[Rfam]
RNA: Lysine riboswitch aptamer
Organism: Anaerosacchariphilus polymeriproducens
RNA sequence: UGAAAUGAUAGAGGUUGCGUUUUUCAUAAGUAUAUUAUUGGAUGUGGCAGACACAGUUGAAGAUAAAGGAAAGGGAACAACGCCGAAAGAAUGUAAUUUUCUGCGGUUACAUUUUUGGGCAUAUAAUGAAUAAUUAUAUGACUGUCAUCUGAGAAGAUGGGGGGCUAUCUAAAGA
Numbered sequence: 001u002g003a004a005a006u007g008a009u010a011g012a013g014g015u016u017g018c019g020u021u022u023u024u025c026a027u028a029a030g031u032a033u034a035u036u037a038u039u040g041g042a043u044g045u046g047g048c049a050g051a052c053a054c055a056g057u058u059g060a061a062g063a064u065a066a067a068g069g070a071a072a073g074g075g076a077a078c079a080a081c082g083c084c085g086a087a088a089g090a091a092u093g094u095a096a097u098u099u100u101c102u103g104c105g106g107u108u109a110c111a112u113u114u115u116u117g118g119g120c121a122u123a124u125a126a127u128g129a130a131u132a133a134u135u136a137u138a139u140g141a142c143u144g145u146c147a148u149c150u151g152a153g154a155a156g157a158u159g160g161g162g163g164g165c166u167a168u169c170u171a172a173a174g175a
Stems, first nucleotide, its partner, number of pairs: 007169005017083005023077003033068001035066005087116012117143002120140008145160006